[Rfam]
RNA sequence: CGGUAAUGUCUCCUCACCGUUAUCAAUGGAGGCACUCGGCCAUGCUGUGGGUUACGAAAAACCUUAGACGCGAGUCGUCAAGAGUGUGGUGUGAGGCGGGGUUGAAUGCCCU
Numbered sequence: 001c002g003g004u005a006a007u008g009u010c011u012c013c014u015c016a017c018c019g020u021u022a023u024c025a026a027u028g029g030a031g032g033c034a035c036u037c038g039g040c041c042a043u044g045c046u047g048u049g050g051g052u053u054a055c056g057a058a059a060a061a062c063c064u065u066a067g068a069c070g071c072g073a074g075u076c077g078u079c080a081a082g083a084g085u086g087u088g089g090u091g092u093g094a095g096g097c098g099g100g101g102u103u104g105a106a107u108g109c110c111c112u
Base pairs, nucleotide, nucleotide: 001019002018003017004016007034008033009032010031011030012029013028035095036094037093038092039090040089041088042087043086044085045084046083049064050063051062052061053060067079068078069077070076098112099111100110101109102108
Shown here is a 112-nucleotide sequence from Bacillus sp. FJAT-26390, a member of the family "epsC RNA". Taxonomically the source falls in Bacillus (Bacteria, Bacillota, Caryophanales, Bacillaceae).